The family of this 108-nucleotide RNA sequence from Phascolarctobacterium succinatutens is "Ribosomal protein L20 leader". Lineage of the source: Bacteria > Acidaminococcales > Acidaminococcaceae > Phascolarctobacterium > Phascolarctobacterium succinatutens. Rfam links the family to the GO term regulation of gene expression. From the family's description: This family is a putative r-protein leader autoregulatory structure found in B. subtilis and other low-GC Gram-positive bacteria. It is located in the 5' untranslated regions of mRNAs encoding initiation factor 3 followed by ribosomal proteins L35 and L20 (infC-rpmI-rplT). A Rho-independent transcription terminator structure that is probably involved in regulation is included at the 3' end.
RNA sequence: GUAACAAAGCAGAAGCCACUCGCUUCUCACCUUGCGGCAAACGCUCGACAGGGUUGGAUAUGAUAUUCAUGCGGGUGGAAUUUGUUCUGCCCGCUUUUUUAUUUUGCU
Numbered sequence: 001g002u003a004a005c006a007a008a009g010c011a012g013a014a015g016c017c018a019c020u021c022g023c024u025u026c027u028c029a030c031c032u033u034g035c036g037g038c039a040a041a042c043g044c045u046c047g048a049c050a051g052g053g054u055u056g057g058a059u060a061u062g063a064u065a066u067u068c069a070u071g072c073g074g075g076u077g078g079a080a081u082u083u084g085u086u087c088u089g090c091c092c093g094c095u096u097u098u099u100u101a102u103u104u105u106g107c108u
Base pairs, nucleotide, nucleotide: 011027012026013025014024015023016022029054030053031052035047036046037044038043071094072093073092074091075090076089077088078087079086